[Rfam]
RNA sequence: CCGUCCGAGGGGCGCUGCAGCAAACUCUGCCCAGCAGGGAUUUGUCAGGCUCGGAUGGGGCGUUAACCAUACGCAUCAACGGCGCCCAUUCGCA
Numbered sequence: 001c002c003g004u005c006c007g008a009g010g011g012g013c014g015c016u017g018c019a020g021c022a023a024a025c026u027c028u029g030c031c032c033a034g035c036a037g038g039g040a041u042u043u044g045u046c047a048g049g050c051u052c053g054g055a056u057g058g059g060g061c062g063u064u065a066a067c068c069a070u071a072c073g074c075a076u077c078a079a080c081g082g083c084g085c086c087c088a089u090u091c092g093c094a
Stems, first nucleotide, its partner, number of pairs: 002057007021044004026039003
Dot-bracket structure: .(((((((............((((.(((........))).))))......))))))).....................................